RNA sequence: AUGCUAAUGAUGAUAAAUUUUAUAUCUUAGUGGAUUUCAGUGAGAUUUUAUCAAUGAUCUGAUUGUCAUACAUAAGCCU
Number, nucleotide and partner (000 for none) at each position: 001a079002u000003g077004c076005u075006a000007a000008u000009g000010a000011u000012g000013a000014u000015a000016a000017a000018u000019u000020u000021u000022a000023u000024a000025u000026c000027u000028u000029a000030g000031u000032g000033g000034a000035u000036u000037u000038c000039a000040g000041u000042g000043a000044g000045a000046u000047u000048u000049u000050a000051u000052c000053a000054a000055u000056g000057a000058u000059c000060u000061g000062a000063u000064u000065g000066u000067c000068a000069u000070a000071c000072a000073u000074a000075a005076g004077c003078c000079u001
Small nucleolar RNA R11/Z151: a 79-nucleotide RNA from Papaver somniferum. The literature on the family includes a 2001 paper in J Mol Biol by Barneche et al., "Identification of 66 box C/D snoRNAs in Arabidopsis thaliana: extensive gene duplications generated multiple isoforms predicting new ribosomal RNA 2'-O-methylation sites". Rfam 15.1 lists 802 matches to the family in 218 species. A search with the family's covariance model found it, with a score of 53 bits.